mir-3017 microRNA precursor family: a 70-nucleotide sequence from Aphis gossypii. Taxonomically the source falls in Aphis (Eukaryota, Protostomia, Ecdysozoa, Arthropoda). The match comes from Rfam's covariance-model search (60 bits).
RNA sequence: CCGUGUUCUGUUCCUGACUCAGUUGGCGCCAGACUGGCGGGCGCCCUCCGGUUCGUCACAGAACACGAGA
Numbered sequence: 001c002c003g004u005g006u007u008c009u010g011u012u013c014c015u016g017a018c019u020c021a022g023u024u025g026g027c028g029c030c031a032g033a034c035u036g037g038c039g040g041g042c043g044c045c046c047u048c049c050g051g052u053u054c055g056u057c058a059c060a061g062a063a064c065a066c067g068a069g070a
Stems, first nucleotide, its partner, number of pairs: 002067010014055001016053003020050001022048001025045003